[Rfam]
A member of the RNA family "Plant signal recognition particle RNA" from Kingdonia uniflora, 308 nucleotides long. The family's consensus secondary structure is taken from published work. A search with the family's covariance model found it, with a score of 241 bits.

RNA sequence: ACCGAGCUUAGUAACGUUGGCUUGUAACCCGAGUGGGGGCAUUAAGGUGGUUGAACACUGAUCUGUUUCGCAGGGUCGGGUCUGUGUGGGCAAACAUUCUGGAUCGCCCGCUCCAAGCUGGGAGUUGGGUCAUGUGGUUCAGGCGAAAGCUUGGGCCACGUGGCUCCUAAAGAGGAGGGGACUGCGCUAGGCUGGUUUCACAGAGCAGCGAAAGCCUCCCUCUCUCGGCAGUGGAGGGAUAACGAUCCGGCGUUCCUCAGACCCCAUAUAAAACCCCAAGAACCAACCUCAGUCGGACAACCAUUUUU
Numbered sequence: 001a002c003c004g005a006g007c008u009u010a011g012u013a014a015c016g017u018u019g020g021c022u023u024g025u026a027a028c029c030c031g032a033g034u035g036g037g038g039g040c041a042u043u044a045a046g047g048u049g050g051u052u053g054a055a056c057a058c059u060g061a062u063c064u065g066u067u068u069c070g071c072a073g074g075g076u077c078g079g080g081u082c083u084g085u086g087u088g089g090g091c092a093a094a095c096a097u098u099c100u101g102g103a104u105c106g107c108c109c110g111c112u113c114c115a116a117g118c119u120g121g122g123a124g125u126u127g128g129g130u131c132a133u134g135u136g137g138u139u140c141a142g143g144c145g146a147a148a149g150c151u152u153g154g155g156c157c158a159c160g161u162g163g164c165u166c167c168u169a170a171a172g173a174g175g176a177g178g179g180g181a182c183u184g185c186g187c188u189a190g191g192c193u194g195g196u197u198u199c200a201c202a203g204a205g206c207a208g209c210g211a212a213a214g215c216c217u218c219c220c221u222c223u224c225u226c227g228g229c230a231g232u233g234g235a236g237g238g239a240u241a242a243c244g245a246u247c248c249g250g251c252g253u254u255c256c257u258c259a260g261a262c263c264c265c266a267u268a269u270a271a272a273a274c275c276c277c278a279a280g281a282a283c284c285a286a287c288c289u290c291a292g293u294c295g296g297a298c299a300a301c302c303a304u305u306u307u308u
Stems, first nucleotide, its partner, number of pairs: 002039002004023005010017001028037003044307010056295001058292003062286001065283002068281002073276004078264007086256001088255003099250008108238002111236005117229008127166018167172001174219005183212001185210003192203003